[Rfam]
RNA sequence: CACAGCCAAGUCAGUUCAGCCCCGUCCCCCAGAGCCGGGCUGGCCACAUGGCUGCCACAACAAGGGCCACCAUUCAGUGGCCCUGGGUCCCCUGCCCUGGGCCCUGCAGGGGCUGUGGGUAGUAAGCU
Numbered sequence: 001c002a003c004a005g006c007c008a009a010g011u012c013a014g015u016u017c018a019g020c021c022c023c024g025u026c027c028c029c030c031a032g033a034g035c036c037g038g039g040c041u042g043g044c045c046a047c048a049u050g051g052c053u054g055c056c057a058c059a060a061c062a063a064g065g066g067c068c069a070c071c072a073u074u075c076a077g078u079g080g081c082c083c084u085g086g087g088u089c090c091c092c093u094g095c096c097c098u099g100g101g102c103c104c105u106g107c108a109g110g111g112g113c114u115g116u117g118g119g120u121a122g123u124a125a126g127c128u
Base pairs, nucleotide, nucleotide: 003054004053005052017042018041019040020039021038022037024035025034027032069120070119071118074115081111082110083109084108085107
A member of the RNA family "Small nucleolar RNA SNORA5" from Myotis brandtii, 128 nucleotides long. About the family: ACA5 is a member of the H/ACA class of snoRNA that guide the sites of modification of uridines to pseudouridines. Taxonomically the source falls in Myotis (Eukaryota, Bilateria, Gnathostomata, Theria). It is annotated as an H/ACA-box small nucleolar RNA.